[Rfam]
RNA: M-box riboswitch aptamer (ykoK leader)
Organism: Lacticaseibacillus camelliae
RNA sequence: GGUGCUUUCCGUUAGGUGAGGCUCCUAUACGAACAAUGCUGCUGCUCAGAAACAUCCAGAGAUGCCAAUGAGUCAACUGCGCCUGUCUAUUAAGGCCCGCGCUAAUGCAGCUGAGAUUUUUUCUAGGCGUAUAGUGCUAAAACUAAACGAUUGGGAUGCAAA
Numbered sequence: 001g002g003u004g005c006u007u008u009c010c011g012u013u014a015g016g017u018g019a020g021g022c023u024c025c026u027a028u029a030c031g032a033a034c035a036a037u038g039c040u041g042c043u044g045c046u047c048a049g050a051a052a053c054a055u056c057c058a059g060a061g062a063u064g065c066c067a068a069u070g071a072g073u074c075a076a077c078u079g080c081g082c083c084u085g086u087c088u089a090u091u092a093a094g095g096c097c098c099g100c101g102c103u104a105a106u107g108c109a110g111c112u113g114a115g116a117u118u119u120u121u122u123c124u125a126g127g128c129g130u131a132u133a134g135u136g137c138u139a140a141a142a143c144u145a146a147a148c149g150a151u152u153g154g155g156a157u158g159c160a161a162a
Base pairs, nucleotide, nucleotide: 005158007156008155009154010153011148012147013093015144016143017142020138021137022136025134026133027132028131029130030129031128038111039110040109041108042107044073045072046071047070048069053064054063055062056061079102080101081100082099085096086095087094113123114122115121